[Rfam]
RNA: mir-339 microRNA precursor family
Organism: Crocuta crocuta
RNA sequence: UCUGGCAGCCGCUCUCCCUGUCCUCCAGGAGCUCACUUACAUCUGGCCGUGAGCUCCUCGAGGCCAGAGCCCGCGUCUGCCUCCGCUCAGCA
Dot-bracket structure: ....((((.(((...(.(((.(.((.(((.(((((((((....)))..)))))).))).)).).))).)...))).))))............